[Rfam]
RNA sequence: GCCUUGGUGGUGAAAUGGUAGACACACGAGACUCAAAAUCUUAUGCUAAAGAGCGUGGAGGUUCAAGUCCUCUUCAAGGCA
Numbered sequence: 001g002c003c004u005u006g007g008u009g010g011u012g013a014a015a016u017g018g019u020a021g022a023c024a025c026a027c028g029a030g031a032c033u034c035a036a037a038a039u040c041u042u043a044u045g046c047u048a049a050a051g052a053g054c055g056u057g058g059a060g061g062u063u064c065a066a067g068u069c070c071u072c073u074u075c076a077a078g079g080c081a
Stems, first nucleotide, its partner, number of pairs: 001080007010025003028042004057073005
Rfam assigns this 81-nucleotide RNA from Arachis duranensis to the family "tRNA".
Gene Ontology term of the family: triplet codon-amino acid adaptor activity.
Transfer RNA (tRNA) molecules are approximately 80 nucleotides in length. Their secondary structure includes four short double-helical elements and three loops (D, anti-codon, and T loops). Further hydrogen bonds mediate the characteristic L-shaped molecular structure. tRNAs have two regions of fundamental functional importance: the anti-codon, which is responsible for specific mRNA codon recognition, and the 3' end, to which the tRNAs corresponding amino acid is attached (by aminoacyl-tRNA synthetases). tRNAs cope with the degeneracy of the genetic code in two manners: having more than one tRNA (with a specific anti-codon) for a particular amino acid; and 'wobble' base-pairing, i.e. permitting non-standard base-pairing at the 3rd anti-codon position.
Lineage of the source: Eukaryota > Viridiplantae > Pentapetalae > fabids > Arachis.
The family's consensus secondary structure is taken from published work.
The family's RNA type in Rfam is transfer RNA.